The record is a 108-nucleotide RNA from Salegentibacter echinorum, which matches "SAM riboswitch aptamer (S box leader)" in Rfam. The organism belongs to Salegentibacter, within Bacteria. Its family is annotated with regulation of gene expression in the Gene Ontology. The base pairs follow the family's consensus structure, which is taken from published work.
[Rfam]
RNA sequence: UCGUUAUCAAGAAAGGUUGAGGGAUUGGACCCAAUGAAGCCUUGGCAACCCUCCUGUAAUGGGAGAAGGUGCUACCUUCUACUUCGUUUUGGCGAAGAUAGAUAACAG
Numbered sequence: 001u002c003g004u005u006a007u008c009a010a011g012a013a014a015g016g017u018u019g020a021g022g023g024a025u026u027g028g029a030c031c032c033a034a035u036g037a038a039g040c041c042u043u044g045g046c047a048a049c050c051c052u053c054c055u056g057u058a059a060u061g062g063g064a065g066a067a068g069g070u071g072c073u074a075c076c077u078u079c080u081a082c083u084u085c086g087u088u089u090u091g092g093c094g095a096a097g098a099u100a101g102a103u104a105a106c107a108g
Base pairs, nucleotide, nucleotide: 001108003106004105005104006103007102008101013043014042015041016040017039021032022031023030026081027080028079029078044073045072046071047070049069050068051065052064053063054062077100082097083096084095085094086093087092